[Rfam]
RNA sequence: CCCGCGGGCAUCCGCCCGCGGGGCCCUGACACCGGUACCUGGUACGGCCGGUGCAG
Numbered sequence: 001c002c003c004g005c006g007g008g009c010a011u012c013c014g015c016c017c018g019c020g021g022g023g024c025c026c027u028g029a030c031a032c033c034g035g036u037a038c039c040u041g042g043u044a045c046g047g048c049c050g051g052u053g054c055a056g
Stems, first nucleotide, its partner, number of pairs: 001022009026056003030053007
Record summary
This 56-nucleotide sequence from Streptomyces roseolilacinus belongs to the Rfam family "L17-Actino-Proteobacteria ribosomal protein leader". NCBI's taxonomy places the organism under Bacteria, Actinomycetes, Kitasatosporales, Streptomycetaceae, Streptomyces. By type it is a cis-regulatory leader.